The record is a 52-nucleotide RNA sequence from Candidatus Tokpelaia hoelldobleri, which matches "ffh sRNA" in Rfam.
RNA sequence: GCUUCCGGAGGUCAACACCCGACAGCGCGUUGCGCCCUCGGGUGCGGCAGUG
Numbered sequence: 001g002c003u004u005c006c007g008g009a010g011g012u013c014a015a016c017a018c019c020c021g022a023c024a025g026c027g028c029g030u031u032g033c034g035c036c037c038u039c040g041g042g043u044g045c046g047g048c049a050g051u052g
Stems, first nucleotide, its partner, number of pairs: 016044007025035004
On this family, see Meyer et al., BMC Genomics 2009: "Identification of candidate structured RNAs in the marine organism 'Candidatus Pelagibacter ubique'". By type it is a small RNA.